[Rfam]
RNA sequence: UGAUACCAGGGUCAAAAGGUCAUGUUGUUCAUGCUUGCAUGAAAAAGCAUGACUUUGGGACCCGCAAAACAUGAGAAAGUAGCCAUUUUUCGUAGAAAAAUGAGCGGAUUUCGAAUGUUUUUAGGAUUUCGUGAGCGUGAAACGCGGAGAAAUCCGUAGGUAUCA
Numbered sequence: 001u002g003a004u005a006c007c008a009g010g011g012u013c014a015a016a017a018g019g020u021c022a023u024g025u026u027g028u029u030c031a032u033g034c035u036u037g038c039a040u041g042a043a044a045a046a047g048c049a050u051g052a053c054u055u056u057g058g059g060a061c062c063c064g065c066a067a068a069a070c071a072u073g074a075g076a077a078a079g080u081a082g083c084c085a086u087u088u089u090u091c092g093u094a095g096a097a098a099a100a101u102g103a104g105c106g107g108a109u110u111u112c113g114a115a116u117g118u119u120u121u122u123a124g125g126a127u128u129u130c131g132u133g134a135g136c137g138u139g140a141a142a143c144g145c146g147g148a149g150a151a152a153u154c155c156g157u158a159g160g161u162a163u164c165a
Stems, first nucleotide, its partner, number of pairs: 001165007010062004016056011028044001029042005066121007075112004082105002084102008124155007135145004
Source information
A member of the RNA family "Clostridiales-1 RNA" from Anaerostipes sp. 992a, 165 nucleotides long. It is annotated as a small RNA. The match comes from Rfam's covariance-model search (130 bits).